[Rfam]
RNA sequence: AUGCGUGUUGGGUGGAGAUGCACAGCAUCGGAUUGCGUAGCAAAGGCUUUCACAGACGCUCCAUUCCGUCCGCUACCGAUGCCUGAUUCCUCCUCCCGAACCAUUGCUUCUGUUCCGACAGCAAGCAGGAGACGUCGUCGCGACGCCGGCCCAUUUGGCCGCACAUCGCUGGACACUGGAGUGCCUUACAACCAUUCCUGACUCACCUGACACCGACCGCGAGAGUCGUGUGUGCCGAACGCCGUUUCCGGAUGCCACGGAAACCGA
Numbered sequence: 001a002u003g004c005g006u007g008u009u010g011g012g013u014g015g016a017g018a019u020g021c022a023c024a025g026c027a028u029c030g031g032a033u034u035g036c037g038u039a040g041c042a043a044a045g046g047c048u049u050u051c052a053c054a055g056a057c058g059c060u061c062c063a064u065u066c067c068g069u070c071c072g073c074u075a076c077c078g079a080u081g082c083c084u085g086a087u088u089c090c091u092c093c094u095c096c097c098g099a100a101c102c103a104u105u106g107c108u109u110c111u112g113u114u115c116c117g118a119c120a121g122c123a124a125g126c127a128g129g130a131g132a133c134g135u136c137g138u139c140g141c142g143a144c145g146c147c148g149g150c151c152c153a154u155u156u157g158g159c160c161g162c163a164c165a166u167c168g169c170u171g172g173a174c175a176c177u178g179g180a181g182u183g184c185c186u187u188a189c190a191a192c193c194a195u196u197c198c199u200g201a202c203u204c205a206c207c208u209g210a211c212a213c214c215g216a217c218c219g220c221g222a223g224a225g226u227c228g229u230g231u232g233u234g235c236c237g238a239a240c241g242c243c244g245u246u247u248c249c250g251g252a253u254g255c256c257a258c259g260g261a262a263a264c265c266g267a
Base pairs, nucleotide, nucleotide: 014093015092016091017090023085024084025082026081027080028079029078030077031076035073036072037071039048040047041046055070056069057068058067094130095129096128098126134202135201136200137174138173139172140169141168142167143166147161148160149159150158151157178198179197180196181195182194183193210233211232212231213230214228215227216226217225244264245263246262247261248260249259250258
Background
rne-II RNA: a 267-nucleotide sequence from Stutzerimonas stutzeri. NCBI's taxonomy places the organism under Bacteria, Gammaproteobacteria, Pseudomonadales, Stutzerimonas, Stutzerimonas stutzeri. It is one of the family's seed sequences. The family's RNA type in Rfam is cis-regulatory element.